[Rfam]
RNA sequence: GUGAUAAUAUCCUAAGGAAUUAUACACAAAACUUUUGUCAAAAAUAAAAACAAAUAAUUAACUGUUAUUAUCUGCUUUGAGCCUUGAAGGACAGAGACAGUGAU
Number, nucleotide and partner (000 for none) at each position: 001g027002u026003g025004a023005u022006a021007a020008u019009a000010u018011c017012c000013u000014a000015a000016g000017g011018a010019a008020u007021u006022a005023u004024a000025c003026a002027c001028a000029a000030a000031a000032c000033u000034u000035u000036u000037g000038u000039c000040a000041a000042a000043a000044a000045u000046a000047a000048a000049a000050a000051c000052a000053a000054a000055u000056a000057a000058u000059u000060a000061a000062c000063u000064g000065u000066u000067a000068u000069u000070a000071u000072c100073u099074g098075c096076u095077u094078u093079g092080a000081g000082c090083c089084u000085u000086g000087a000088a000089g083090g082091a000092c079093a078094g077095a076096g075097a000098c074099a073100g072101u000102g000103a000104u000

Rfam assigns this 104-nucleotide RNA sequence from Gottschalkia acidurici to the family "pan motif". The match comes from Rfam's covariance-model search (57 bits). NCBI's taxonomy places the organism under Bacteria, Bacillati, Tissierellia, Tissierellales, Gottschalkia acidurici.